[Rfam]
RNA sequence: CCUGCUGUCCUUCAUUCCACCGGAGUCUGUCUCAUACAUAAUCAGAUUUCAGUGGAGUGAAGCACAAGAGGCA
Dot-bracket structure: .........((((((..(((.((((.(((.............))).)))).)))..))))))...........

This 73-nucleotide sequence from Xenopus tropicalis belongs to the Rfam family "mir-205 microRNA precursor family". A reference for the family is Chen et al. (2005), "The developmental miRNA profiles of zebrafish as determined by small RNA cloning", Genes Dev. The base pairs follow the family's consensus structure, which was predicted with RNAalifold. Rfam's curators put it in the seed alignment.